[Rfam]
RNA sequence: UGGAAGUGAUGAAAUAGAGAUAAUUGGAUGUCUCUUUGAAAGGAGUGUGUGAGAUAAAUGGAAUUUAAACCAAGUCAGACUGGGGCAGGGGUGGGGCGGCAGUGUGGGGAAUGCGUGUGUGCGUGCAUGUGUAGAAAAGGCUUUGAACGGGGGCACUGAUGGCGUGGUGCUGAUUCCGGAGUGCAUCUGAGGCAUGUUGUUAAGUUCUGGGGUUCCACUUUACAACGUUGCCGAUGAUUAAAGCCCAAAACAAGCCCACCAGGACAAGCCAAGGCAUCCUAAAUCUCUAACAGGUUCAUUAAUGAAAGUGAUCCUGUGAUCUGAUCUGA
Numbered sequence: 001u002g003g004a005a006g007u008g009a010u011g012a013a014a015u016a017g018a019g020a021u022a023a024u025u026g027g028a029u030g031u032c033u034c035u036u037u038g039a040a041a042g043g044a045g046u047g048u049g050u051g052a053g054a055u056a057a058a059u060g061g062a063a064u065u066u067a068a069a070c071c072a073a074g075u076c077a078g079a080c081u082g083g084g085g086c087a088g089g090g091g092u093g094g095g096g097c098g099g100c101a102g103u104g105u106g107g108g109g110a111a112u113g114c115g116u117g118u119g120u121g122c123g124u125g126c127a128u129g130u131g132u133a134g135a136a137a138a139g140g141c142u143u144u145g146a147a148c149g150g151g152g153g154c155a156c157u158g159a160u161g162g163c164g165u166g167g168u169g170c171u172g173a174u175u176c177c178g179g180a181g182u183g184c185a186u187c188u189g190a191g192g193c194a195u196g197u198u199g200u201u202a203a204g205u206u207c208u209g210g211g212g213u214u215c216c217a218c219u220u221u222a223c224a225a226c227g228u229u230g231c232c233g234a235u236g237a238u239u240a241a242a243g244c245c246c247a248a249a250a251c252a253a254g255c256c257c258a259c260c261a262g263g264a265c266a267a268g269c270c271a272a273g274g275c276a277u278c279c280u281a282a283a284u285c286u287c288u289a290a291c292a293g294g295u296u297c298a299u300u301a302a303u304g305a306a307a308g309u310g311a312u313c314c315u316g317u318g319a320u321c322u323g324a325u326c327u328g329a
Stems, first nucleotide, its partner, number of pairs: 001328004195227006202220001204215001207212001

A member of the RNA family "Small Cajal body-specific RNA 7" from Nyctibius grandis, 329 nucleotides long. Taxonomically the source falls in Nyctibius (Eukaryota, Dipnotetrapodomorpha, Sauria, Dinosauria). It scores 176 bits against the family's covariance model. Rfam classes the family as a small Cajal body RNA. The pairing is the family consensus, mapped onto this sequence. Its family is annotated with RNA processing and nucleolus in the Gene Ontology. A reference for the family is Darzacq et al. (2002), "Cajal body-specific small nuclear RNAs: a novel class of 2'-O-methylation and pseudouridylation guide RNAs", EMBO J.